The family of this 130-nucleotide sequence from Escherichia coli is "EFASI RNA". By type it is a small RNA. NCBI's taxonomy places the organism under Bacteria, Enterobacterales, Enterobacteriaceae, Escherichia, Escherichia coli. Rfam's curators put it in the seed alignment.
RNA sequence: AUGAACCGACACCGAGGCGGAUCCGGACGAUCCGGGGGAUAACCCGCGCAAGCGGGCGGCUGCUCAGAGAGCACAACCGAAGCCCCACCACACCUCAACGGCUGCCGCCCCGGCGCUCAGGUAUCGUUCG
Number, nucleotide and partner (000 for none) at each position: 001a000002u130003g129004a128005a127006c000007c126008g125009a124010c000011a122012c121013c120014g000015a000016g000017g000018c034019g033020g032021a031022u030023c029024c000025g000026g000027a000028c000029g023030a022031u021032c020033c019034g018035g086036g085037g084038g083039a000040u000041a000042a000043c056044c055045c054046g053047c052048g000049c000050a000051a000052g047053c046054g045055g044056g043057c079058g078059g077060c000061u073062g072063c071064u070065c069066a000067g000068a000069g065070a064071g063072c062073a061074c000075a000076a000077c059078c058079g057080a000081a000082g000083c038084c037085c036086c035087a000088c000089c000090a000091c000092a000093c000094c000095u000096c000097a000098a000099c000100g000101g000102c000103u000104g000105c000106c000107g000108c000109c000110c000111c000112g000113g000114c000115g000116c000117u000118c000119a000120g013121g012122u011123a000124u009125c008126g007127u005128u004129c003130g002